A member of the RNA family "Group II catalytic intron D1-D4-1" from Halomonas cerina, 85 nucleotides long.
The match comes from Rfam's covariance-model search (57 bits).
Pairs were carried over by alignment from the consensus structure.
On this family, see Bonen and Vogel, Trends Genet 2001: "The ins and outs of group II introns".
Rfam 15.1 lists 2,508 matches to the family in 1,144 species.
NCBI's taxonomy places the organism under Bacteria, Pseudomonadati, Gammaproteobacteria, Oceanospirillales, Halomonas.
Its family is annotated with Group II intron splicing in the Gene Ontology.
RNA sequence: CUACCGGCGUCGAGAGGCGACGGGAGGGGCCGCCAGACGUCAGCCGAGGCCAUAGUAAGUGCCGGUUCACCGCGGCACCAAGGGC
Numbered sequence: 001c002u003a004c005c006g007g008c009g010u011c012g013a014g015a016g017g018c019g020a021c022g023g024g025a026g027g028g029g030c031c032g033c034c035a036g037a038c039g040u041c042a043g044c045c046g047a048g049g050c051c052a053u054a055g056u057a058a059g060u061g062c063c064g065g066u067u068c069a070c071c072g073c074g075g076c077a078c079c080a081a082g083g084g085c
Base pairs, nucleotide, nucleotide: 001027002026004023005022006021008019009018010017011016040047041046049085050084051083059078060077061076062075063074064073
Dot-bracket structure: ((.(((.((((....)))).)))..))............((....)).(((.......((((((........))))))....)))